[Rfam]
RNA sequence: GUCUUCUCAAUGAGCUCCUUCCCGUCUAUCAGUGAUGGGCUGUGGAUUCGCACGAGAAGAAAAUUCACUUCACUCCACAUGUAGUGUUCCUGUUGUCACGGGGAUGCUCAAGUGUGGCUGUGAGACAAGU
Numbered sequence: 001g002u003c004u005u006c007u008c009a010a011u012g013a014g015c016u017c018c019u020u021c022c023c024g025u026c027u028a029u030c031a032g033u034g035a036u037g038g039g040c041u042g043u044g045g046a047u048u049c050g051c052a053c054g055a056g057a058a059g060a061a062a063a064u065u066c067a068c069u070u071c072a073c074u075c076c077a078c079a080u081g082u083a084g085u086g087u088u089c090c091u092g093u094u095g096u097c098a099c100g101g102g103g104a105u106g107c108u109c110a111a112g113u114g115u116g117g118c119u120g121u122g123a124g125a126c127a128a129g130u
Stems, first nucleotide, its partner, number of pairs: 003059006014051002016046003022038005070123004087104006